The family of this 109-nucleotide RNA from Brachypodium distachyon is "Small nucleolar RNA Z118/Z121/Z120". Rfam classes the family as a C/D-box small nucleolar RNA. Rfam links the family to the GO terms RNA processing and nucleolus. The source organism's lineage runs through Eukaryota, Streptophytina, Spermatophyta, Mesangiospermae and Brachypodium. The literature on the family includes a 2003 paper in Nucleic Acids Res by Chen et al., "The high diversity of snoRNAs in plants: identification and comparative study of 120 snoRNA genes from Oryza sativa".

RNA sequence: UGCUUGCUAGGAUGAAAUCACAAGGACGGUAUCUGAGAAAGGUAGCUCUUGAAAAAGUGCAGCCUCUUUGAUUAUUCAUCCAAAACUGAUCAAAUAUUCUGAGCAAUCA
Numbered sequence: 001u002g003c004u005u006g007c008u009a010g011g012a013u014g015a016a017a018u019c020a021c022a023a024g025g026a027c028g029g030u031a032u033c034u035g036a037g038a039a040a041g042g043u044a045g046c047u048c049u050u051g052a053a054a055a056a057g058u059g060c061a062g063c064c065u066c067u068u069u070g071a072u073u074a075u076u077c078a079u080c081c082a083a084a085a086c087u088g089a090u091c092a093a094a095u096a097u098u099c100u101g102a103g104c105a106a107u108c109a
Base pairs, nucleotide, nucleotide: 001109002108004106005105006104007103037068038067040065041064042063